[Rfam]
RNA: SAM (S-adenosyl methionine) riboswitch aptamer
RNA sequence: GGUCACGAGUGACAGCGCAAAGGCCCCGGCUCGCUGUCCGGCAACCCUCCGUCCGAGGCGGGGUGCCCCGGGUGAUGACCGGGCUGUGGGCAGCAAGGCUCGCAGCAAGCCGGACUC
Numbered sequence: 001g002g003u004c005a006c007g008a009g010u011g012a013c014a015g016c017g018c019a020a021a022g023g024c025c026c027c028g029g030c031u032c033g034c035u036g037u038c039c040g041g042c043a044a045c046c047c048u049c050c051g052u053c054c055g056a057g058g059c060g061g062g063g064u065g066c067c068c069c070g071g072g073u074g075a076u077g078a079c080c081g082g083g084c085u086g087u088g089g090g091c092a093g094c095a096a097g098g099c100u101c102g103c104a105g106c107a108a109g110c111c112g113g114a115c116u117c
Base pairs, nucleotide, nucleotide: 001080002079003078004077009039011038012037013036014035015034016033022031023030040067041066042065045063046062047061049058050057083106084105085104086103087102088101089100090099091098